The record is a 90-nucleotide RNA sequence from Desulfitobacterium hafniense, which matches "c-di-GMP-I riboswitch aptamer" in Rfam.
The family is grouped with related families in Rfam's "c-di-GMP_I riboswitch clan".
NCBI's taxonomy places the organism under Bacteria, Bacillati, Bacillota, Desulfitobacteriaceae, Desulfitobacterium hafniense.

RNA sequence: UAGAGCCAAGGGCAAACCCGGUGAAAGCCGGGGGCGCAAAGCUACAGGGUCUACGGCAUUUUCGGAUGCUAUGAUAGCCUGGCUGCCAAA
Numbered sequence: 001u002a003g004a005g006c007c008a009a010g011g012g013c014a015a016a017c018c019c020g021g022u023g024a025a026a027g028c029c030g031g032g033g034g035c036g037c038a039a040a041g042c043u044a045c046a047g048g049g050u051c052u053a054c055g056g057c058a059u060u061u062u063c064g065g066a067u068g069c070u071a072u073g074a075u076a077g078c079c080u081g082g083c084u085g086c087c088a089a090a
Stems, first nucleotide, its partner, number of pairs: 012037002017032006040084004046080003049075003056069004